[Rfam]
RNA sequence: AGGCUGUUGUGUGAUGACUGCAUAGUUCAGCUGAUCAUCUGUGAUGAUCACAGUCACUGUCUUUUGCCCCUGUCUGAUGCAGCCU
Dot-bracket structure: .(((((.........................................................................))))).
Numbered sequence: 001a002g003g004c005u006g007u008u009g010u011g012u013g014a015u016g017a018c019u020g021c022a023u024a025g026u027u028c029a030g031c032u033g034a035u036c037a038u039c040u041g042u043g044a045u046g047a048u049c050a051c052a053g054u055c056a057c058u059g060u061c062u063u064u065u066g067c068c069c070c071u072g073u074c075u076g077a078u079g080c081a082g083c084c085u
Stems, first nucleotide, its partner, number of pairs: 002084005
Shown here is an 85-nucleotide RNA from Zosterops lateralis, a member of the family "Small nucleolar RNA snR60/Z15/Z230/Z193/J17".
Clan: SNORD77 clan.
Lineage of the source: Eukaryota > Dipnotetrapodomorpha > Dinosauria > Telluraves > Zosterops lateralis.